[Rfam]
Tryptophan operon leader: a 102-nucleotide sequence from Yersinia mollaretii. The organism belongs to Yersinia mollaretii, within Bacteria. For this family Rfam cites "Attenuation in amino acid biosynthetic operons" (Kolter and Yanofsky, Annu Rev Genet, 1982). Rfam describes the family as follows. At least 6 amino acid operons are known to be regulated by attenuation. In each a leader sequence of 150-200 bp is found upstream of the first gene in the operon.

RNA sequence: CUGCGUUGGUGGCACAUCUCCCUCACUCGGGCGGUGUAAUCGCGCAUUCCAGUCAUCAGACAGUGCAGAUUGCUUCAGCCCGCGAAUAGCGGGUUUUUUUAU
Numbered sequence: 001c002u003g004c005g006u007u008g009g010u011g012g013c014a015c016a017u018c019u020c021c022c023u024c025a026c027u028c029g030g031g032c033g034g035u036g037u038a039a040u041c042g043c044g045c046a047u048u049c050c051a052g053u054c055a056u057c058a059g060a061c062a063g064u065g066c067a068g069a070u071u072g073c074u075u076c077a078g079c080c081c082g083c084g085a086a087u088a089g090c091g092g093g094u095u096u097u098u099u100u101a102u
Stems, first nucleotide, its partner, number of pairs: 009043004014037005020031003077095007